[Rfam]
RNA sequence: GGCGGGUCGCCCCGCAUGGCAGCGUGGGAACCGGGUCAGGGCCGGGAGGCAGCAGCCCUAACCACAUCCUGCCAGUGCCGGGGGUCCGGCUCGCCGUC
Numbered sequence: 001g002g003c004g005g006g007u008c009g010c011c012c013c014g015c016a017u018g019g020c021a022g023c024g025u026g027g028g029a030a031c032c033g034g035g036u037c038a039g040g041g042c043c044g045g046g047a048g049g050c051a052g053c054a055g056c057c058c059u060a061a062c063c064a065c066a067u068c069c070u071g072c073c074a075g076u077g078c079c080g081g082g083g084g085u086c087c088g089g090c091u092c093g094c095c096g097u098c
Stems, first nucleotide, its partner, number of pairs: 004092005010083005015075001017074006024065004033058004041050003
This 98-nucleotide RNA sequence from Hydrogenophilus thermoluteolus belongs to the Rfam family "Bacterial small signal recognition particle RNA". The base pairs follow the family's consensus structure, which is taken from published work. Taxonomically the source falls in Hydrogenophilus (Bacteria, Pseudomonadota, Hydrogenophilia, Hydrogenophilaceae). For this family Rfam cites "SRPDB: Signal Recognition Particle Database" (Rosenblad et al., Nucleic Acids Res, 2003).